Record summary: MIR5534 microRNA precursor family: a 102-nucleotide RNA from Oryza glumipatula. The match comes from Rfam's covariance-model search (79 bits).
RNA sequence: AACUUUAGCACCUUAAAGACAACAGCUAGAAUGGCCGCGGUGACGGAGGAUUGUCCCUCCAUGUGGCCGCCAUUCUAGCUGUUGUCAUCGAGGCACUAAAUU
Numbered sequence: 001a002a003c004u005u006u007a008g009c010a011c012c013u014u015a016a017a018g019a020c021a022a023c024a025g026c027u028a029g030a031a032u033g034g035c036c037g038c039g040g041u042g043a044c045g046g047a048g049g050a051u052u053g054u055c056c057c058u059c060c061a062u063g064u065g066g067c068c069g070c071c072a073u074u075c076u077a078g079c080u081g082u083u084g085u086c087a088u089c090g091a092g093g094c095a096c097u098a099a100a101u102u
Stems, first nucleotide, its partner, number of pairs: 002102001004100005011093004016088001018086018037067002041063002045059002048056003